Overview: Rfam assigns this 145-nucleotide RNA sequence from Sulfobacillus harzensis to the family "FMN riboswitch aptamer (RFN element)".
[Rfam]
RNA sequence: CAAUACCUUCGGGGCGUGGUGAGGCCCAAACGGGCCAAUUCCCGACCGGCGGUAAUCUCGGAAACGAGUAGCCCGCGAGCCGAAAAGGCAGGAGACCGGUGAGAUUCCGGCGCCGACAGUACAGUCUGGAUGGGAGAAGGUAGGC
Numbered sequence: 001c002a003a004u005a006c007c008u009u010c011g012g013g014g015c016g017u018g019g020u021g022a023g024g025c026c027c028a029a030a031c032g033g034g035c036c037a038a039u040u041c042c043c044g045a046c047c048g049g050c051g052g053u054a055a056u057c058u059c060g061g062a063a064a065c066g067a068g069u070a071g072c073c074c075g076c077g078a079g080c081c082g083a084a085a086a087g088g089c090a091g092g093a094g095a096c097c098g099g100u101g102a103g104a105u106u107c108c109g110g111c112g113c114c115g116a117c118a119g120u121a122c123a124g125u126c127u128g129g130a131u132g133g134g135a136g137a138a139g140g141u142a143g144g145c
Stems, first nucleotide, its partner, number of pairs: 004142007018042002045125002047115002049076004071113002080091001096110004117128003